[Rfam]
RNA sequence: AUGAAAGGAAGAACGGCUAAGCCCCGCCACGUCCUGUGGCAACGCCGUUCUGACCCACGUCCU
Numbered sequence: 001a002u003g004a005a006a007g008g009a010a011g012a013a014c015g016g017c018u019a020a021g022c023c024c025c026g027c028c029a030c031g032u033c034c035u036g037u038g039g040c041a042a043c044g045c046c047g048u049u050c051u052g053a054c055c056c057a058c059g060u061c062c063u
Stems, first nucleotide, its partner, number of pairs: 011050007026040005
Rfam assigns this 63-nucleotide RNA sequence from Peribacillus saganii to the family "Bacillaceae-1 RNA". The base pairs follow the family's consensus structure, which is taken from published work. By type it is a small RNA. Taxonomically the source falls in Peribacillus (Bacteria, Bacillati, Bacilli, Bacillaceae).